[Rfam]
RNA sequence: CGCAACGGCCAGCAAUGACCGAUGUGAAGCGGCAGAAGUCAGCAGCGAUCAUAGUAGCCGGGCAGGUUGUGGCCCGGUGAAGGAU
Number, nucleotide and partner (000 for none) at each position: 001c026002g025003c000004a023005a000006c021007g020008g019009c000010c017011a016012g000013c000014a000015a000016u011017g010018a000019c008020c007021g006022a000023u004024g000025u002026g001027a000028a000029g000030c000031g000032g000033c000034a000035g000036a000037a000038g000039u000040c045041a000042g000043c000044a000045g040046c000047g000048a085049u084050c083051a000052u000053a000054g000055u000056a000057g078058c077059c076060g075061g074062g073063c000064a000065g000066g000067u000068u000069g000070u000071g000072g000073c062074c061075c060076g059077g058078u057079g000080a000081a000082g000083g050084a049085u048
The record is an 85-nucleotide RNA sequence from Denitratisoma oestradiolicum, which matches "Group II catalytic intron D1-D4-1" in Rfam. A search with the family's covariance model found it, with a score of 57 bits. The pairing is the family consensus, mapped onto this sequence. Gene Ontology term of the family: Group II intron splicing. NCBI's taxonomy places the organism under Bacteria, Pseudomonadati, Betaproteobacteria, Sterolibacteriaceae, Denitratisoma.